RNA sequence: UGGGCAGUAUCUGCAAAGAACUGUACCUGUUAGGAAGAAAAAUUCGAUAAAUUUCUGCCUUGAUCCUAAGGGACUUGGACAGAGGG
Numbered sequence: 001u002g003g004g005c006a007g008u009a010u011c012u013g014c015a016a017a018g019a020a021c022u023g024u025a026c027c028u029g030u031u032a033g034g035a036a037g038a039a040a041a042a043u044u045c046g047a048u049a050a051a052u053u054u055c056u057g058c059c060u061u062g063a064u065c066c067u068a069a070g071g072g073a074c075u076u077g078g079a080c081a082g083a084g085g086g
Stems, first nucleotide, its partner, number of pairs: 002027002004024005010019002055082003058078002062074001064073003
Rfam assigns this 86-nucleotide RNA from Bacillus safensis to the family "pan motif". It is annotated as a cis-regulatory element.